[Rfam]
RNA: Small nucleolar RNA SNORA11
RNA sequence: CGGGUGUGAUCAGAGCAGGAAGCCUGAAGAUAUGGCUCCUCUGUUUACAACACACCCAACAGGAUCAUGGAUGGGUUCGAUGAUGAAAGGGCACAAAAAGCCUGGCCUGACUGAGCACAGAACCCCUCACAGGC
Numbered sequence: 001c002g003g004g005u006g007u008g009a010u011c012a013g014a015g016c017a018g019g020a021a022g023c024c025u026g027a028a029g030a031u032a033u034g035g036c037u038c039c040u041c042u043g044u045u046u047a048c049a050a051c052a053c054a055c056c057c058a059a060c061a062g063g064a065u066c067a068u069g070g071a072u073g074g075g076u077u078c079g080a081u082g083a084u085g086a087a088a089g090g091g092c093a094c095a096a097a098a099a100g101c102c103u104g105g106c107c108u109g110a111c112u113g114a115g116c117a118c119a120g121a122a123c124c125c126c127u128c129a130c131a132g133g134c
Stems, first nucleotide, its partner, number of pairs: 002057007013046007022036003070127001073124001078120001081119001084117002088108003092104002